[Rfam]
RNA sequence: GCAAACACGACUUUAGCAACGGUCGGAAGCACAUGAAUCAUAACCGAUUCAUGUGCUUCCGACCGUUGCUAAAGUCGUGUUUGCCAUGAUGAGU
Numbered sequence: 001g002c003a004a005a006c007a008c009g010a011c012u013u014u015a016g017c018a019a020c021g022g023u024c025g026g027a028a029g030c031a032c033a034u035g036a037a038u039c040a041u042a043a044c045c046g047a048u049u050c051a052u053g054u055g056c057u058u059c060c061g062a063c064c065g066u067u068g069c070u071a072a073a074g075u076c077g078u079g080u081u082u083g084c085c086a087u088g089a090u091g092a093g094u
Base pairs, nucleotide, nucleotide: 005080006079007078008077009076010075011074012073015070016069017068018067019066020065021064022063024061025059026058028057029056030055031054032053033052035050036049
Rfam assigns this 94-nucleotide sequence from Modicella reniformis to the family "mir-210 microRNA precursor family". It scores 54 bits against the family's covariance model. The organism belongs to Modicella, within Eukaryota.